The record is a 118-nucleotide sequence from Gottschalkia acidurici, which matches "FMN riboswitch aptamer (RFN element)" in Rfam.
RNA sequence: UUAAAUCUUCAGGGCAGGGUGUAAUUCCCGACCGGUGGUAAAGUCCACGAGCUGCUAAUGCAGUUGACUUGGUGAAAUUCCAAGACCGACAGUAAAGUCUGGAUGAAAGAAGAAAAAU
Numbered sequence: 001u002u003a004a005a006u007c008u009u010c011a012g013g014g015c016a017g018g019g020u021g022u023a024a025u026u027c028c029c030g031a032c033c034g035g036u037g038g039u040a041a042a043g044u045c046c047a048c049g050a051g052c053u054g055c056u057a058a059u060g061c062a063g064u065u066g067a068c069u070u071g072g073u074g075a076a077a078u079u080c081c082a083a084g085a086c087c088g089a090c091a092g093u094a095a096a097g098u099c100u101g102g103a104u105g106a107a108a109g110a111a112g113a114a115a116a117a118u
Stems, first nucleotide, its partner, number of pairs: 006113005017029003031098002033088002035048004043086002051064003068084005090101003
Rfam describes the family as follows. The RFN element is a highly conserved domain that is found frequently in the 5'-untranslated regions of prokaryotic mRNAs that encode for flavin mononucleotide (FMN) biosynthesis and transport proteins.